[Rfam]
RNA sequence: GUGCUUUACUUGAUUUUGUAUAUUGUCACACUUGUGUGUGUCAUUUUUCAUUGUGUGAAGCUACAAAAAUAAGUUCUCCUCGCUAUCCGGUGAUAUUCUUUUAUGGUUCAUUUGGACGUUGGUGAACUACAUUA
Numbered sequence: 001g002u003g004c005u006u007u008a009c010u011u012g013a014u015u016u017u018g019u020a021u022a023u024u025g026u027c028a029c030a031c032u033u034g035u036g037u038g039u040g041u042c043a044u045u046u047u048u049c050a051u052u053g054u055g056u057g058a059a060g061c062u063a064c065a066a067a068a069a070u071a072a073g074u075u076c077u078c079c080u081c082g083c084u085a086u087c088c089g090g091u092g093a094u095a096u097u098c099u100u101u102u103a104u105g106g107u108u109c110a111u112u113u114g115g116a117c118g119u120u121g122g123u124g125a126a127c128u129a130c131a132u133u134a
Stems, first nucleotide, its partner, number of pairs: 001064002003061003008056002011053003018046001025044002028041004073127004078122002081118002086116005095107003
Background: A member of the RNA family "Small nucleolar RNA snoR136" from Salvia splendens, 134 nucleotides long. Gene Ontology terms of the family: RNA processing and nucleolus. The source organism's lineage runs through Eukaryota, Viridiplantae, Lamiales, Lamiaceae and core Calosphace. The family has 8 seed sequences and 452 matches in Rfam 15.1. A search with the family's covariance model found it, with a score of 63 bits. For this family Rfam cites "Mining small RNA sequencing data: a new approach to identify small nucleolar RNAs in Arabidopsis" (Chen and Wu, Nucleic Acids Res, 2009). Pairs were carried over by alignment from the consensus structure, which was predicted with mfold.